[Rfam]
RNA sequence: UAUUUGAAUAAUCUCUAUGGCCAACUCGAUGAACAAAGCAUGCCAGUGCUUCGAGGCGCAUGGUACCUCUGGCCUUUAAUACAAGGAUACCUGUAAGAUAAGGUCACACGAAAACAGUGAUGUUUAGUGGAAGGCGGAACCGCCAACGGGAACAUGUGUCGCAGAACUGUCUGCAUUGAAAGGUUUGGAUCUUCCGGGUGCAACAAUAGACGCUCGCUGUGCGAAAAUAACCCUAAGGGAUGCCAGCUUGGCCGCUGGUACGACAGAGGGAUUGCCUCUAAUGCAUCUUGCCUUGAAUCAGAGAAAUCUGAGUAUAACGGAAGCGUCCAGAAAGAGUAGCCGAAUGGCAAUUCUACAAUCAAAUUCUGAAUGGCUGGUGAAUUUGCAGGUAACCAUUCCUGUACAGGGUUUGGCGAAAGCUGGGGCAAGAAGUCUAUGAUCGACGGGUUGUAGGCUCAGACUUGUCUCCCUGUUGACCGAAUAUCAAUGGAGGACAGCAAUGUGCGGCGAAGGCCGGGCCAUAGGGAUUAUUCAAG
Numbered sequence: 001u002a003u004u005u006g007a008a009u010a011a012u013c014u015c016u017a018u019g020g021c022c023a024a025c026u027c028g029a030u031g032a033a034c035a036a037a038g039c040a041u042g043c044c045a046g047u048g049c050u051u052c053g054a055g056g057c058g059c060a061u062g063g064u065a066c067c068u069c070u071g072g073c074c075u076u077u078a079a080u081a082c083a084a085g086g087a088u089a090c091c092u093g094u095a096a097g098a099u100a101a102g103g104u105c106a107c108a109c110g111a112a113a114a115c116a117g118u119g120a121u122g123u124u125u126a127g128u129g130g131a132a133g134g135c136g137g138a139a140c141c142g143c144c145a146a147c148g149g150g151a152a153c154a155u156g157u158g159u160c161g162c163a164g165a166a167c168u169g170u171c172u173g174c175a176u177u178g179a180a181a182g183g184u185u186u187g188g189a190u191c192u193u194c195c196g197g198g199u200g201c202a203a204c205a206a207u208a209g210a211c212g213c214u215c216g217c218u219g220u221g222c223g224a225a226a227a228u229a230a231c232c233c234u235a236a237g238g239g240a241u242g243c244c245a246g247c248u249u250g251g252c253c254g255c256u257g258g259u260a261c262g263a264c265a266g267a268g269g270g271a272u273u274g275c276c277u278c279u280a281a282u283g284c285a286u287c288u289u290g291c292c293u294u295g296a297a298u299c300a301g302a303g304a305a306a307u308c309u310g311a312g313u314a315u316a317a318c319g320g321a322a323g324c325g326u327c328c329a330g331a332a333a334g335a336g337u338a339g340c341c342g343a344a345u346g347g348c349a350a351u352u353c354u355a356c357a358a359u360c361a362a363a364u365u366c367u368g369a370a371u372g373g374c375u376g377g378u379g380a381a382u383u384u385g386c387a388g389g390u391a392a393c394c395a396u397u398c399c400u401g402u403a404c405a406g407g408g409u410u411u412g413g414c415g416a417a418a419g420c421u422g423g424g425g426c427a428a429g430a431a432g433u434c435u436a437u438g439a440u441c442g443a444c445g446g447g448u449u450g451u452a453g454g455c456u457c458a459g460a461c462u463u464g465u466c467u468c469c470c471u472g473u474u475g476a477c478c479g480a481a482u483a484u485c486a487a488u489g490g491a492g493g494a495c496a497g498c499a500a501u502g503u504g505c506g507g508c509g510a511a512g513g514c515c516g517g518g519c520c521a522u523a524g525g526g527a528u529u530a531u532u533c534a535a536g
Base pairs, nucleotide, nucleotide: 008532011529014526015525016524020520022518025055026054027053028052029051037050038049039048040047041046057158058157059156060155061154062153071105072104073103074102075101076100077098080095081094082093083092085090107129108128109127112125113124114123115122116121133144134143135142136141167517168497172493177487182484183478186329187328188327189326191323192322193321194320195319196318197287198286199285200284201283202282214224215223216222231270232269233268234267241260242259243258244257245256246255250276251275252274288350289349290348291347292346298311299310300309301308302307333383339378340377341376342375365460366459367458368457388400389399404472405471406470407421412420423469424468425467428463429462432456434453435452436451438449439448440447441446505516506515507514508513